[Rfam]
RNA sequence: UGAUGGCUGUUUCUCUCACUGCUUGGAGCCUUAAGUAGUGGGAUUUUAGCCUAUCAUAUGUCUAGGCUGACUUACCUUCACUCAGGGCAUCAUGGGAAUUGGGUGGCUGUCUGUCAAUGCCUUCUGAUUUUUGCAGAGUCAAACAAUU
Numbered sequence: 001u002g003a004u005g006g007c008u009g010u011u012u013c014u015c016u017c018a019c020u021g022c023u024u025g026g027a028g029c030c031u032u033a034a035g036u037a038g039u040g041g042g043a044u045u046u047u048a049g050c051c052u053a054u055c056a057u058a059u060g061u062c063u064a065g066g067c068u069g070a071c072u073u074a075c076c077u078u079c080a081c082u083c084a085g086g087g088c089a090u091c092a093u094g095g096g097a098a099u100u101g102g103g104u105g106g107c108u109g110u111c112u113g114u115c116a117a118u119g120c121c122u123u124c125u126g127a128u129u130u131u132u133g134c135a136g137a138g139u140c141a142a143a144c145a146a147u148u
Base pairs, nucleotide, nucleotide: 001056002055003054004053005052006051008049014043015042016041017040018039020037021036022035023034069140070139071138072137073136082127083126084125085124086123087120088119089118090117095112096111098110099109
Shown here is a 148-nucleotide RNA sequence from Capra hircus, a member of the family "Small nucleolar RNA SNORA79". Rfam links the family to the GO terms RNA processing and nucleolus. From the family's description: ACA65 (SNORA79) is a member of the H/ACA class of snoRNAs that guide the sites of modification of uridines to pseudouridines. This snoRNA was identified by computational screening and its expression in mouse experimentally verified by Northern blot and primer extension analysis.